[Rfam]
RNA sequence: UAUAUCAAGAACGGGAGCUUAUAUAUAGGCUGAGAGGAAGUUGUGAACUUCGACCGCACCUGAUUUGGGUAAUGCCAACGUAGGGAUAGGAACUUAGAUUUUG
Numbered sequence: 001u002a003u004a005u006c007a008a009g010a011a012c013g014g015g016a017g018c019u020u021a022u023a024u025a026u027a028g029g030c031u032g033a034g035a036g037g038a039a040g041u042u043g044u045g046a047a048c049u050u051c052g053a054c055c056g057c058a059c060c061u062g063a064u065u066u067g068g069g070u071a072a073u074g075c076c077a078a079c080g081u082a083g084g085g086a087u088a089g090g091a092a093c094u095u096a097g098a099u100u101u102u103g
Stems, first nucleotide, its partner, number of pairs: 010087001012056003017030005037051005059084004065078004

Rfam assigns this 103-nucleotide sequence from Longibaculum muris to the family "TPP riboswitch aptamer (THI element)". A search with the family's covariance model found it, with a score of 55 bits.